The record is a 137-nucleotide sequence from Cavia porcellus, which matches "Small Cajal body specific RNA 11" in Rfam. The base pairs follow the family's consensus structure, which was predicted with RNAalifold. Rfam's curators write: scaRNAs are a specific class of small nuclear RNAs which localise to the Cajal bodies and guide the modification of RNA polymerase II transcribed spliceosomal RNAs U1, U2, U4, U5 and U12. ACA57 belongs to the H/ACA box class of guide RNAs as it has the predicted hairpin-hinge-hairpin-tail structure, conserved H/ACA-box motifs and is found associated with GAR1.
RNA sequence: GUGUCCUGGCCUAUGUUUGUGCUCCCCUGUGCUCAGCUGUGACAGGGUAGUCUGGCAGGACGUACAGCAGUUUCCCUCUCAGUUUAGGAGGGCUGUCCUAAGAAUAGGGCUGGCUCUUAAAGGCACGAGAGGACAAU
Dot-bracket structure: .(((((((.((.........(((.((((((...........)))))).)))..)))))))))............((((((.((((..(((((((((((((....)))))).)))))))..))))..)))))).....